[Rfam]
RNA: Bacillaceae-1 RNA
Nucleotides: 068
Stems, first nucleotide, its partner, number of pairs: 012049006025040005054068005
Number, partner (000 for none) and nucleotide at each position: 001000a002000a003000g004000u005000a006000a007000g008000g009000a010000a011000a012049u013048u014047a015046g016045c017044u018000u019000a020000a021000g022000a023000a024000c025040g026039u027038c028037g029036c030000a031000u032000c033000c034000u035000u036029g037028c038027g039026a040025u041000a042000a043000c044017a045016g046015c047014u048013a049012a050000c051000u052000g053000g054068c055067c056066u057065g058064c059000a060000u061000c062000a063000c064058g065057c066056a067055g068054g